[Rfam]
RNA sequence: AUGGCAGACCAGACAAUCGCCGUUUACUUUGGUAAAGGGAGGAAAGUCCGGACUACACAGGGCGACGUGCUAGCUAACGGCUAGGGGGCGAGAGCCUACGACCAGUGCAACAGAGAAUAGACCGCCCAACCACUCAAUCAAGUGUUUAAAAAUAUUCGGUUGAGUGGUUGGGUAAGGGUGAAACGGUGAGGUAAGAGCUCACCGCAUGGCUGGCGACAGUCAUGGCAAGGUAAACUCCACGUGUAGCAAAACCAAAUAGGUAUCCAAUGAGUUGCCCGCUUAGGAUACGGGUAGGUUGCUUGAACGUACAAGCGAUUGUGCGUCUAGAUGAAUGAUUGUCCAUGACAGAAUCCGGCUUAUCGGUUUGCCAUUAUU
Numbered sequence: 001a002u003g004g005c006a007g008a009c010c011a012g013a014c015a016a017u018c019g020c021c022g023u024u025u026a027c028u029u030u031g032g033u034a035a036a037g038g039g040a041g042g043a044a045a046g047u048c049c050g051g052a053c054u055a056c057a058c059a060g061g062g063c064g065a066c067g068u069g070c071u072a073g074c075u076a077a078c079g080g081c082u083a084g085g086g087g088g089c090g091a092g093a094g095c096c097u098a099c100g101a102c103c104a105g106u107g108c109a110a111c112a113g114a115g116a117a118u119a120g121a122c123c124g125c126c127c128a129a130c131c132a133c134u135c136a137a138u139c140a141a142g143u144g145u146u147u148a149a150a151a152a153u154a155u156u157c158g159g160u161u162g163a164g165u166g167g168u169u170g171g172g173u174a175a176g177g178g179u180g181a182a183a184c185g186g187u188g189a190g191g192u193a194a195g196a197g198c199u200c201a202c203c204g205c206a207u208g209g210c211u212g213g214c215g216a217c218a219g220u221c222a223u224g225g226c227a228a229g230g231u232a233a234a235c236u237c238c239a240c241g242u243g244u245a246g247c248a249a250a251a252c253c254a255a256a257u258a259g260g261u262a263u264c265c266a267a268u269g270a271g272u273u274g275c276c277c278g279c280u281u282a283g284g285a286u287a288c289g290g291g292u293a294g295g296u297u298g299c300u301u302g303a304a305c306g307u308a309c310a311a312g313c314g315a316u317u318g319u320g321c322g323u324c325u326a327g328a329u330g331a332a333u334g335a336u337u338g339u340c341c342a343u344g345a346c347a348g349a350a351u352c353c354g355g356c357u358u359a360u361c362g363g364u365u366u367g368c369c370a371u372u373a374u375u
Base pairs, nucleotide, nucleotide: 001371002370003369004368005367006366007365008364009363010362011360012340013339014338015337016336017335018334020039021038023036024035025034026033027032044358045357046356048355049354050353051352052351053246054245055244056243060277061276062275063274065242066241067240068239069238070084071083072082073081074080085099086097087096088095089094100237101236105235106234107231108230122177123176124173125172126171127170128169129168130167131166132165133164134163135162136161137160138159139158185203186202187201188200189199190198204226205224206223207222208221209220210219211218212217250297251296252295253294260288261287262286263285264284265283268282269281270280271279272278304323305322306321307320308319309318310317311316
RNA: Bacterial RNase P class A
Organism: Moraxella nonliquefaciens